[Rfam]
RNA sequence: UAACGCCGAGCGUACAGGCAUUUAAACGCACGCACGCGCUGACGCUGAUACAGACAGCGGUUUUAUAAAUUAAAGUGACUUAAAGCGUGGGAAAGGACAAA
Numbered sequence: 001u002a003a004c005g006c007c008g009a010g011c012g013u014a015c016a017g018g019c020a021u022u023u024a025a026a027c028g029c030a031c032g033c034a035c036g037c038g039c040u041g042a043c044g045c046u047g048a049u050a051c052a053g054a055c056a057g058c059g060g061u062u063u064u065a066u067a068a069a070u071u072a073a074a075g076u077g078a079c080u081u082a083a084a085g086c087g088u089g090g091g092a093a094a095g096g097a098c099a100a101a
Base pairs, nucleotide, nucleotide: 005019006018007017010033011032012031013030035089036088037087038086039085043059044058045057046056
This 101-nucleotide RNA belongs to the Rfam family "GP20-a RNA".
Rfam's curators put it in the seed alignment.
Rfam classes the family as a cis-regulatory element.
The family's consensus secondary structure is taken from published work.